[Rfam]
RNA sequence: GGGGGUGUAAUGGUCUCGACAUUGCUUUUCGCACAUGCAGUGCACCUCGGAGGCUCGGCUCCGUCAUCAACGGAACAGUUAAUAUAACUGCAAAGAACGAAAAUUCUUACGCUUUAGCUGCUUAAUAACCAGCUAGCGUGAUCCUUCCGACUUCGCUCAAGGGUCGGGUCUGGGUCUCAAAUUAUUGAGCUACGGUUAAUGUUGCCACCUGAGGCAUUAACAAGAGACUAGUAGGUUAGCUGCGUUGUGUUAGCCUUGCUGGCUGGCGCGACAUCGCGGCGAAUUUUAAAUAAGUCAGCUAUAGGUGUAGAGCUGCAUGUAGCAGGGGUGAUGGACAGGAGUUCGAUUCUCCUCACCUCCAUUA
Numbered sequence: 001g002g003g004g005g006u007g008u009a010a011u012g013g014u015c016u017c018g019a020c021a022u023u024g025c026u027u028u029u030c031g032c033a034c035a036u037g038c039a040g041u042g043c044a045c046c047u048c049g050g051a052g053g054c055u056c057g058g059c060u061c062c063g064u065c066a067u068c069a070a071c072g073g074a075a076c077a078g079u080u081a082a083u084a085u086a087a088c089u090g091c092a093a094a095g096a097a098c099g100a101a102a103a104u105u106c107u108u109a110c111g112c113u114u115u116a117g118c119u120g121c122u123u124a125a126u127a128a129c130c131a132g133c134u135a136g137c138g139u140g141a142u143c144c145u146u147c148c149g150a151c152u153u154c155g156c157u158c159a160a161g162g163g164u165c166g167g168g169u170c171u172g173g174g175u176c177u178c179a180a181a182u183u184a185u186u187g188a189g190c191u192a193c194g195g196u197u198a199a200u201g202u203u204g205c206c207a208c209c210u211g212a213g214g215c216a217u218u219a220a221c222a223a224g225a226g227a228c229u230a231g232u233a234g235g236u237u238a239g240c241u242g243c244g245u246u247g248u249g250u251u252a253g254c255c256u257u258g259c260u261g262g263c264u265g266g267c268g269c270g271a272c273a274u275c276g277c278g279g280c281g282a283a284u285u286u287u288a289a290a291u292a293a294g295u296c297a298g299c300u301a302u303a304g305g306u307g308u309a310g311a312g313c314u315g316c317a318u319g320u321a322g323c324a325g326g327g328g329u330g331a332u333g334g335a336c337a338g339g340a341g342u343u344c345g346a347u348u349c350u351c352c353u354c355a356c357c358u359c360c361a362u363u364a
Stems, first nucleotide, its partner, number of pairs: 001360007020333009033320009043307005048063005053076001055074001056072002113138001115136001117134001120133002140176005146168008155190006195221009207236005239280006246273003253267003258299004264293001337353005

The family of this 364-nucleotide RNA sequence from Lacticaseibacillus paracasei is "transfer-messenger RNA". Its family is annotated with RNA catabolic process in the Gene Ontology. About the family: Bacterial tmRNA, also known as 10Sa RNA or SsrA, is named for its dual tRNA and mRNA-like properties. On this family, see Laslett et al., Nucleic Acids Res 2002: "BRUCE: a program for the detection of transfer-messenger RNA genes in nucleotide sequences". Rfam's curators put it in the seed alignment.